[Rfam]
RNA sequence: GGUUCUGGUCAGCUUUGCAGGGUUAGCAGUCAGCUUGUGCACACUAGAGCCGCUGUGCAAACCCAUGCAAAACUGACUGUGACU
Numbered sequence: 001g002g003u004u005c006u007g008g009u010c011a012g013c014u015u016u017g018c019a020g021g022g023u024u025a026g027c028a029g030u031c032a033g034c035u036u037g038u039g040c041a042c043a044c045u046a047g048a049g050c051c052g053c054u055g056u057g058c059a060a061a062c063c064c065a066u067g068c069a070a071a072a073c074u075g076a077c078u079g080u081g082a083c084u
Base pairs, nucleotide, nucleotide: 003082004081006079007078008077009076010075011074012073014071015070016069017068018067019066020064021063023060024059026058027057028056032054033053034052
RNA: mir-19 microRNA precursor family
Organism: Scleropages formosus